[Rfam]
RNA sequence: UCUCUGGCUGUAGCCCUCUUGACGGAAGCACUUCCUGUUUUCUGAAAGAAAAGAAAGUGUCUCCGUUAAGAGGGUUACUGUCUGAGA
Dot-bracket structure: ((((..((.(((((.(((.(((((((.((((((.(..((...........))).)))))).))))))).))).))))).))..))))
This 87-nucleotide RNA sequence from Saimiri boliviensis belongs to the Rfam family "mir-515 microRNA precursor family". NCBI's taxonomy places the organism under Eukaryota, Metazoa, Teleostomi, Platyrrhini, Saimiri boliviensis. A search with the family's covariance model found it, with a score of 83 bits. Clan: mir-290 clan. Rfam 15.1 lists 1,056 matches to the family in 27 species. A reference for the family is Bentwich et al. (2005), "Identification of hundreds of conserved and nonconserved human microRNAs", Nat Genet.